Shown here is an 87-nucleotide sequence from Bifiguratus adelaidae, a member of the family "Selenocysteine transfer RNA". Pairs were carried over by alignment from the consensus structure, which is taken from published work. The match comes from Rfam's covariance-model search (67 bits).
RNA sequence: GCAGAGUUGAGAUUCCCUGGUGGGGGUUGCUGGCUUCAAACCAGUAGACGACGAGAGUCGUAACGGUUCGAUUCCGUCUACUUCUGC
Numbered sequence: 001g002c003a004g005a006g007u008u009g010a011g012a013u014u015c016c017c018u019g020g021u022g023g024g025g026g027u028u029g030c031u032g033g034c035u036u037c038a039a040a041c042c043a044g045u046a047g048a049c050g051a052c053g054a055g056a057g058u059c060g061u062a063a064c065g066g067u068u069c070g071a072u073u074c075c076g077u078c079u080a081c082u083u084c085u086g087c
Stems, first nucleotide, its partner, number of pairs: 001087005006081002009078001012027006028046006048061005063077004